[Rfam]
The family of this 101-nucleotide sequence from Sugiyamaella lignohabitans is "Small nucleolar RNA snR48". The family's RNA type in Rfam is C/D-box small nucleolar RNA. On this family, see Lowe and Eddy, Science 1999: "A computational screen for methylation guide snoRNAs in yeast".

RNA sequence: ACAAAAUGAUGAUCCAAAUUUUAUAUGUUUUUCUGGCAUCUCUAAUGCUAGGGGCCGAUACCCUCGGCCUCGAUGAAUUUAACCUUGACUAGUAUCUGAUU
Numbered sequence: 001a002c003a004a005a006a007u008g009a010u011g012a013u014c015c016a017a018a019u020u021u022u023a024u025a026u027g028u029u030u031u032u033c034u035g036g037c038a039u040c041u042c043u044a045a046u047g048c049u050a051g052g053g054g055c056c057g058a059u060a061c062c063c064u065c066g067g068c069c070u071c072g073a074u075g076a077a078u079u080u081a082a083c084c085u086u087g088a089c090u091a092g093u094a095u096c097u098g099a100u101u
Base pairs, nucleotide, nucleotide: 052070053069054068055067056066057065058064
NCBI's taxonomy places the organism under Eukaryota, Fungi, Saccharomycotina, Dipodascales, Sugiyamaella.